[Rfam]
RNA: Enterococcus sRNA 68 (Lacto-3 RNA)
RNA sequence: UGCGAUGAGUCGAGAUAUAGCCGGACAAUUUAAUUGUUGCGCUGCGGCGCCUAGCGGUUUGAUCGAAACGGGGCACGUUUUACUGCAGGAAGCAGUGUGUCUGGGCUAAAACAUUGUGGAGUGU
Numbered sequence: 001u002g003c004g005a006u007g008a009g010u011c012g013a014g015a016u017a018u019a020g021c022c023g024g025a026c027a028a029u030u031u032a033a034u035u036g037u038u039g040c041g042c043u044g045c046g047g048c049g050c051c052u053a054g055c056g057g058u059u060u061g062a063u064c065g066a067a068a069c070g071g072g073g074c075a076c077g078u079u080u081u082a083c084u085g086c087a088g089g090a091a092g093c094a095g096u097g098u099g100u101c102u103g104g105g106c107u108a109a110a111a112c113a114u115u116g117u118g119g120a121g122u123g124u
Stems, first nucleotide, its partner, number of pairs: 019059005024038005039050004072101005082096005111124005
Dot-bracket structure: ..................((((((((((.....)))))((((....))))....)))))............(((((.....(((((.....)))))))))).........(((((....)))))